Shown here is a 183-nucleotide RNA from Paenibacillus sp. D9, a member of the family "Lysine riboswitch aptamer". Its family is annotated with lysine biosynthetic process in the Gene Ontology. Lineage of the source: Bacteria > Bacillati > Bacillota > Caryophanales > Paenibacillus.
RNA sequence: CGGUGAGGUAGAGGCGCGGCGUUUAACAGUUUGUAGCGGAGCUCGAGAAGGCGAUGAGGCUAUGAAGAAGGAAAUGCCGCCGAAGUGGGUAAUACGCUCCGUAUUGCUUGCUGGGUCUGCAGUUAAGAGCUGCAGGACUGUCUCAAUGAACCUCCCCGUUCAUUGAGUUGAGCUAUCUUCCCA
Numbered sequence: 001c002g003g004u005g006a007g008g009u010a011g012a013g014g015c016g017c018g019g020c021g022u023u024u025a026a027c028a029g030u031u032u033g034u035a036g037c038g039g040a041g042c043u044c045g046a047g048a049a050g051g052c053g054a055u056g057a058g059g060c061u062a063u064g065a066a067g068a069a070g071g072a073a074a075u076g077c078c079g080c081c082g083a084a085g086u087g088g089g090u091a092a093u094a095c096g097c098u099c100c101g102u103a104u105u106g107c108u109u110g111c112u113g114g115g116u117c118u119g120c121a122g123u124u125a126a127g128a129g130c131u132g133c134a135g136g137a138c139u140g141u142c143u144c145a146a147u148g149a150a151c152c153u154c155c156c157c158g159u160u161c162a163u164u165g166a167g168u169u170g171a172g173c174u175a176u177c178u179u180c181c182c183a
Base pairs, nucleotide, nucleotide: 006178007177008176009175010174011173016080017079018078019077020076021075022074023073024072031065032064033063034062035061036060037059084112085111086110087109088108089107090106091105092104093103094102095101113139114138116136117135118134119133120132121131122130123129142167143166144165145164146163147162148161149160150159